Bacillaceae-1 RNA: a 67-nucleotide RNA from Lederbergia citrea. The organism belongs to Lederbergia, within Bacteria. Pairs were carried over by alignment from the consensus structure, which is taken from published work.

RNA sequence: GAUCUAGGAUGAACGGCUAAGACCGCCACAUCCUGUGGCAACGCCGUCCUGACCCGCAUCCUGCGGG
Dot-bracket structure: ..........(.(((((.......(((((.....)))))...))))).)...(((((.....)))))